RNA sequence: CAGUCAUUCGAAAGUUCAGAUCGGUCAGUCGGGACUUUCGUUCUCUGGGUUCUCCUGGCGCGUUGCGAAGCCGCGGUCGAUCCUCCCUCGAUCGUAGGUAAUGCGCCUACCUCGCCUCGCUCGUCACAUCGGCAAGCGAGGCUUUUU
Numbered sequence: 001c002a003g004u005c006a007u008u009c010g011a012a013a014g015u016u017c018a019g020a021u022c023g024g025u026c027a028g029u030c031g032g033g034a035c036u037u038u039c040g041u042u043c044u045c046u047g048g049g050u051u052c053u054c055c056u057g058g059c060g061c062g063u064u065g066c067g068a069a070g071c072c073g074c075g076g077u078c079g080a081u082c083c084u085c086c087c088u089c090g091a092u093c094g095u096a097g098g099u100a101a102u103g104c105g106c107c108u109a110c111c112u113c114g115c116c117u118c119g120c121u122c123g124u125c126a127c128a129u130c131g132g133c134a135a136g137c138g139a140g141g142c143u144u145u146u147u
Stems, first nucleotide, its partner, number of pairs: 057107008073095007114142008124132002

Notes: The family of this 147-nucleotide sequence from Rhizobium metallidurans is "Rhizobiales sRNA Atu_C7". A reference for the family is Wilms et al. (2012), "Deep sequencing uncovers numerous small RNAs on all four replicons of the plant pathogen Agrobacterium tumefaciens", RNA Biol.